[Rfam]
RNA sequence: ACUGCAGGAUUGCGCAUAUUAGCAUUCUUCUAUUAAUUAUGCUUUUCUUGCUGAAAAUGUUUCCUGCUAUAUUAGUAAUUUUGGGAAGAUUGGCAGUUGGAUUCUGCUAAAGGCUUUCAUUGAGACUAUGAACAAUCAUUUUUUCUGUAUUU
Numbered sequence: 001a002c003u004g005c006a007g008g009a010u011u012g013c014g015c016a017u018a019u020u021a022g023c024a025u026u027c028u029u030c031u032a033u034u035a036a037u038u039a040u041g042c043u044u045u046u047c048u049u050g051c052u053g054a055a056a057a058u059g060u061u062u063c064c065u066g067c068u069a070u071a072u073u074a075g076u077a078a079u080u081u082u083g084g085g086a087a088g089a090u091u092g093g094c095a096g097u098u099g100g101a102u103u104c105u106g107c108u109a110a111a112g113g114c115u116u117u118c119a120u121u122g123a124g125a126c127u128a129u130g131a132a133c134a135a136u137c138a139u140u141u142u143u144u145c146u147g148u149a150u151u152u
Stems, first nucleotide, its partner, number of pairs: 004067005009061001014042005083145008092136001096133003
Dot-bracket structure: ...((((((....(((((...................)))))..................).)))))...............((((((((.(...(((................................)))..).)))))))).......
RNA: small nucleolar RNA snoR135
Organism: Phoenix dactylifera